[Rfam]
RNA sequence: CCGGUCGCCGAAUGGGGCCGGCGCAGUCCAGGAGGCGUCAAGGCUCUUGGCGCCAUCCUGUAUCCAUGUUGCUCAAAGGAGGAUGUGGCUAUGAGGA
Numbered sequence: 001c002c003g004g005u006c007g008c009c010g011a012a013u014g015g016g017g018c019c020g021g022c023g024c025a026g027u028c029c030a031g032g033a034g035g036c037g038u039c040a041a042g043g044c045u046c047u048u049g050g051c052g053c054c055a056u057c058c059u060g061u062a063u064c065c066a067u068g069u070u071g072c073u074c075a076a077a078g079g080a081g082g083a084u085g086u087g088g089c090u091a092u093g094a095g096g097a
Stems, first nucleotide, its partner, number of pairs: 001021006008015002032056001034054008057095001059093004064088007072081003
Notes: This 97-nucleotide sequence from Mesorhizobium wenxiniae belongs to the Rfam family "Repression of heat shock gene expression (ROSE) element". Rfam's curators write: This family represents a 5' UTR cis-regulatory element found in heat shock mRNAs and is known as the ROSE (repression of heat shock gene expression) element. A reference for the family is Nocker et al. (2001), "A mRNA-based thermosensor controls expression of rhizobial heat shock genes", Nucleic Acids Res. The source organism's lineage runs through Bacteria, Pseudomonadota, Alphaproteobacteria, Phyllobacteriaceae and Mesorhizobium.